[Rfam]
RNA sequence: AGCGGUUGGGGGUCAUAGCAGAAGUGUUCACAUCAUGACCCCUGUCAAGUAAUACCUGGUAAUACCUGUGAAUUCUACU
Numbered sequence: 001a002g003c004g005g006u007u008g009g010g011g012g013u014c015a016u017a018g019c020a021g022a023a024g025u026g027u028u029c030a031c032a033u034c035a036u037g038a039c040c041c042c043u044g045u046c047a048a049g050u051a052a053u054a055c056c057u058g059g060u061a062a063u064a065c066c067u068g069u070g071a072a073u074u075c076u077a078c079u
Stems, first nucleotide, its partner, number of pairs: 009042006017079002020076004024036003046068002049065003